[Rfam]
RNA sequence: GUGUUUUUCAUAGUAUUAGAUUUAAGGUUAACAAGGUUUUGGGUCACAGCGGUGACCCUUUUUUAUUUUG
Numbered sequence: 001g002u003g004u005u006u007u008u009c010a011u012a013g014u015a016u017u018a019g020a021u022u023u024a025a026g027g028u029u030a031a032c033a034a035g036g037u038u039u040u041g042g043g044u045c046a047c048a049g050c051g052g053u054g055a056c057c058c059u060u061u062u063u064u065a066u067u068u069u070g
Base pairs, nucleotide, nucleotide: 041058042057043056044055045054046053047052
Description
Shown here is a 70-nucleotide sequence from Prevotella aff. ruminicola Tc2-24, a member of the family "Bacteroidetes FopS (family of paralogous sRNAs)". It scores 74 bits against the family's covariance model. For this family Rfam cites "The global RNA-binding protein RbpB is a regulator of polysaccharide utilization in Bacteroides thetaiotaomicron" (Ruttiger et al., Nat Commun, 2025). The family's RNA type in Rfam is small RNA.